The record is an 82-nucleotide sequence from Leersia perrieri, which matches "Small nucleolar RNA Z168/Z174" in Rfam.
Taxonomically the source falls in Leersia (Eukaryota, Tracheophyta, Euphyllophyta, Poales).
By type it is a C/D-box small nucleolar RNA.
RNA sequence: CGGCCGAUGAUGCUAGACAUGCUCCUACGGUUCAGACCUAUGGGGAGGAUUUCCUACGCAUAUUUCCCAAGAGCUGAGGCCC
Numbered sequence: 001c002g003g004c005c006g007a008u009g010a011u012g013c014u015a016g017a018c019a020u021g022c023u024c025c026u027a028c029g030g031u032u033c034a035g036a037c038c039u040a041u042g043g044g045g046a047g048g049a050u051u052u053c054c055u056a057c058g059c060a061u062a063u064u065u066c067c068c069a070a071g072a073g074c075u076g077a078g079g080c081c082c
Stems, first nucleotide, its partner, number of pairs: 002081004